[Rfam]
RNA sequence: UUGCGCCUGUGACGGAUCAGGCACGCCGCUUCACUUGGCUUCGCAGGCAGCCGUGGCGUGUACGGUCUUGUACAUCCAAUAAUUUAUUGGAUUUAACUCCUUCU
Numbered sequence: 001u002u003g004c005g006c007c008u009g010u011g012a013c014g015g016a017u018c019a020g021g022c023a024c025g026c027c028g029c030u031u032c033a034c035u036u037g038g039c040u041u042c043g044c045a046g047g048c049a050g051c052c053g054u055g056g057c058g059u060g061u062a063c064g065g066u067c068u069u070g071u072a073c074a075u076c077c078a079a080u081a082a083u084u085u086a087u088u089g090g091a092u093u094u095a096a097c098u099c100c101u102u103c104u
Base pairs, nucleotide, nucleotide: 005048006047007046008045009044010043011042014068015067017065018064021061022060023059024058025057026056027055028054037052038051039050040049076090077089078088079087080086081085

Overview
Shown here is a 104-nucleotide RNA from Ruminococcaceae bacterium FB2012, a member of the family "RT-5 RNA". The family's consensus secondary structure is taken from published work. It is annotated as a small RNA.